[Rfam]
RNA sequence: GUGAGUGGAAGCUCACUGUAGAGGCUACAAGCUGAGUGCCUGGUCACUCACUCAAGCGCCUCGGGGAAGGUCUGAGACAAGAGCCAACAACUGUCCUUGCAGGACAUCAUCUGAUGCAGGUGAGCAAGUACACAGAAAUCGUGAGCCAAUGUGAGGUGUCACAGCAGGAGACGUUGAUAUGUGCUGACAACUGAUGCGCCCUCACUGGUGUGGAAGUGCUUGUGGCUGGCAGGUGAGUUCAAUGUGUGAGCUGCUGUAAAGCUGCAGAACCCAAUUCAGACUACUCUCCACUCAC
Numbered sequence: 001g002u003g004a005g006u007g008g009a010a011g012c013u014c015a016c017u018g019u020a021g022a023g024g025c026u027a028c029a030a031g032c033u034g035a036g037u038g039c040c041u042g043g044u045c046a047c048u049c050a051c052u053c054a055a056g057c058g059c060c061u062c063g064g065g066g067a068a069g070g071u072c073u074g075a076g077a078c079a080a081g082a083g084c085c086a087a088c089a090a091c092u093g094u095c096c097u098u099g100c101a102g103g104a105c106a107u108c109a110u111c112u113g114a115u116g117c118a119g120g121u122g123a124g125c126a127a128g129u130a131c132a133c134a135g136a137a138a139u140c141g142u143g144a145g146c147c148a149a150u151g152u153g154a155g156g157u158g159u160c161a162c163a164g165c166a167g168g169a170g171a172c173g174u175u176g177a178u179a180u181g182u183g184c185u186g187a188c189a190a191c192u193g194a195u196g197c198g199c200c201c202u203c204a205c206u207g208g209u210g211u212g213g214a215a216g217u218g219c220u221u222g223u224g225g226c227u228g229g230c231a232g233g234u235g236a237g238u239u240c241a242a243u244g245u246g247u248g249a250g251c252u253g254c255u256g257u258a259a260a261g262c263u264g265c266a267g268a269a270c271c272c273a274a275u276u277c278a279g280a281c282u283a284c285u286c287u288c289c290a291c292u293c294a295c
Stems, first nucleotide, its partner, number of pairs: 001295004007289003012250005021062004034049005039043001072279005082227004092106005107123006124223007144209001146207001251267004256262001
Dot-bracket structure: ((((..(((..(((((....((((.........((((((...).))))).........)))).........[[[[[.....((((......(((((.....)))))((((((.....))))))(((((((.............(.(............................................................).).......)))))))))))..................)))))((((.(.....).)))).......]]]]].......)))..))))
A member of the RNA family "Nuclear RNase P" from Denticeps clupeoides, 295 nucleotides long. Lineage of the source: Eukaryota > Craniata > Vertebrata > Clupeocephala > Denticeps. Its Rfam clan is "RNaseP clan". The family has 116 seed sequences and 3,848 matches in Rfam 15.1. For this family Rfam cites "Ribonuclease P: unity and diversity in a tRNA processing ribozyme" (Frank and Pace, Annu Rev Biochem, 1998). Rfam's curators write: Ribonuclease P (RNase P) is a ubiquitous endoribonuclease, found in archaea, bacteria and eukarya as well as chloroplasts and mitochondria. Gene Ontology terms of the family: ribonuclease P complex, tRNA processing and ribonuclease P activity. It scores 201 bits against the family's covariance model. The family's consensus secondary structure is taken from published work.